Annotation:
A member of the RNA family "Bacteroidales small SRP" from Echinicola vietnamensis, 96 nucleotides long. The match comes from Rfam's covariance-model search (76 bits). Gene Ontology terms of the family: signal recognition particle, plasma membrane targeting and SRP-dependent cotranslational protein targeting to membrane, signal sequence recognition. The organism belongs to Echinicola vietnamensis, within Bacteria. It is annotated as a non-coding RNA gene.
[Rfam]
RNA sequence: UGUACUCAAGCGGCACGACCAGCUCCUGCCAAAUCCCCCAGGUCCGGAAGGAAGCAAGGGUAGGCGGUUGUAGCGGUGCGAUGCCGCUUCUUUUUU
Numbered sequence: 001u002g003u004a005c006u007c008a009a010g011c012g013g014c015a016c017g018a019c020c021a022g023c024u025c026c027u028g029c030c031a032a033a034u035c036c037c038c039c040a041g042g043u044c045c046g047g048a049a050g051g052a053a054g055c056a057a058g059g060g061u062a063g064g065c066g067g068u069u070g071u072a073g074c075g076g077u078g079c080g081a082u083g084c085c086g087c088u089u090c091u092u093u094u095u096u
Base pairs, nucleotide, nucleotide: 008092009091010090011086012085013084014083015082016080017079018077019076